[Rfam]
A member of the RNA family "Drosophila small cajal body-specific RNA PsiU2-38.40.4" from Drosophila navojoa, 134 nucleotides long. Lineage of the source: Eukaryota > Allotriocarida > Cyclorrhapha > Drosophila > mojavensis species complex. The match comes from Rfam's covariance-model search (118 bits). Gene Ontology terms of the family: RNA processing, Cajal body and nucleolus. By type it is a small Cajal body RNA. For this family Rfam cites "Novel small Cajal-body-specific RNAs identified in Drosophila: probing guide RNA function" (Deryusheva and Gall, RNA, 2013).
RNA sequence: UCAGCAGCAACAAGAAAGUCUUCAAAUUGUCAGUUUAUUUGAGCGCUGAUACAAUGCUGCCAGAGUAAAGCUAAAGCCAAGAACAGUUCAAUUUAGCGUAGUUUAUAAACUGAUCUACACGUGGCUUGACAUUC
Numbered sequence: 001u002c003a004g005c006a007g008c009a010a011c012a013a014g015a016a017a018g019u020c021u022u023c024a025a026a027u028u029g030u031c032a033g034u035u036u037a038u039u040u041g042a043g044c045g046c047u048g049a050u051a052c053a054a055u056g057c058u059g060c061c062a063g064a065g066u067a068a069a070g071c072u073a074a075a076g077c078c079a080a081g082a083a084c085a086g087u088u089c090a091a092u093u094u095a096g097c098g099u100a101g102u103u104u105a106u107a108a109a110c111u112g113a114u115c116u117a118c119a120c121g122u123g124g125c126u127u128g129a130c131a132u133u134c
Stems, first nucleotide, its partner, number of pairs: 004060006017047003021043006028037002076125004085116002088113003092109004